[Rfam]
RNA: mir-3150 microRNA precursor family
RNA sequence: GGAAAGCAGGCCAACCUCGAGGAUCUCCCCAGCCUUGGCGUUCAGGUGCUGAGGAGAUCGUCGAGGUUGGCCUGCUUCCC
Numbered sequence: 001g002g003a004a005a006g007c008a009g010g011c012c013a014a015c016c017u018c019g020a021g022g023a024u025c026u027c028c029c030c031a032g033c034c035u036u037g038g039c040g041u042u043c044a045g046g047u048g049c050u051g052a053g054g055a056g057a058u059c060g061u062c063g064a065g066g067u068u069g070g071c072c073u074g075c076u077u078c079c080c
Stems, first nucleotide, its partner, number of pairs: 001080002004077017022059007030051004